Description:
Shown here is a 201-nucleotide sequence from Agrilus planipennis, a member of the family "R2 RNA element". Pairs were carried over by alignment from the consensus structure, which is taken from published work. NCBI's taxonomy places the organism under Eukaryota, Hexapoda, Neuropteroidea, Agrilinae, Agrilus. This family represents the 3' UTR region of the R2 retrotransposable element. This family is known to interact with the R2-encoded reverse transcriptase in a reaction known as target primed reverse transcription (TPRT). Gene Ontology term of the family: regulation of reverse transcription.
RNA sequence: AGUACACUAUUUUGAUUAUCUCGUAAGGUUCAGCCAGCGUUUGAAAUGUAACGGCUGAAGGGGACCUUAAUUGGUCCUAGAACGGCCGGGGGUAGAGGGGUUUUAGUCGGUAGGUUCGAAGACUUCUUCCUCGGGAAUCCGACACUACCCAGUCGUAUGGACGACUGGGUGUCUUUUGAAGAUUUCCCCUCUUCCACGAAA
Numbered sequence: 001a002g003u004a005c006a007c008u009a010u011u012u013u014g015a016u017u018a019u020c021u022c023g024u025a026a027g028g029u030u031c032a033g034c035c036a037g038c039g040u041u042u043g044a045a046a047u048g049u050a051a052c053g054g055c056u057g058a059a060g061g062g063g064a065c066c067u068u069a070a071u072u073g074g075u076c077c078u079a080g081a082a083c084g085g086c087c088g089g090g091g092g093u094a095g096a097g098g099g100g101u102u103u104u105a106g107u108c109g110g111u112a113g114g115u116u117c118g119a120a121g122a123c124u125u126c127u128u129c130c131u132c133g134g135g136a137a138u139c140c141g142a143c144a145c146u147a148c149c150c151a152g153u154c155g156u157a158u159g160g161a162c163g164a165c166u167g168g169g170u171g172u173c174u175u176u177u178g179a180a181g182a183u184u185u186c187c188c189c190u191c192u193u194c195c196a197c198g199a200a201a
Base pairs, nucleotide, nucleotide: 071200072199074197075196091195092194094192095191097188098187099186106143107142108141109140110139115135116134117133118132119131121129122128145171147170148169149168150167151166